[Rfam]
RNA sequence: UGGUUGUGAUGGGAUGGCAGUGUAUUGUUAGCUGGUUGAAUAUCUGAAUGCACCAGCUAACAUGCAACUGCUGUCCUAUUGCAUCUG
Numbered sequence: 001u002g003g004u005u006g007u008g009a010u011g012g013g014a015u016g017g018c019a020g021u022g023u024a025u026u027g028u029u030a031g032c033u034g035g036u037u038g039a040a041u042a043u044c045u046g047a048a049u050g051c052a053c054c055a056g057c058u059a060a061c062a063u064g065c066a067a068c069u070g071c072u073g074u075c076c077u078a079u080u081g082c083a084u085c086u087g
Base pairs, nucleotide, nucleotide: 001087002086003085005083006082007081008080009079010078011077012076013075015073016072017071018070019069020068021067022065023064024063027061028060029059030058031057032056033055034054035053036052041050042049043048
Annotation
mir-449 microRNA precursor family: an 87-nucleotide sequence from Sarcophilus harrisii. Rfam 15.1 lists 325 matches to the family in 192 species. The family is grouped with related families in Rfam's "mir-34 clan".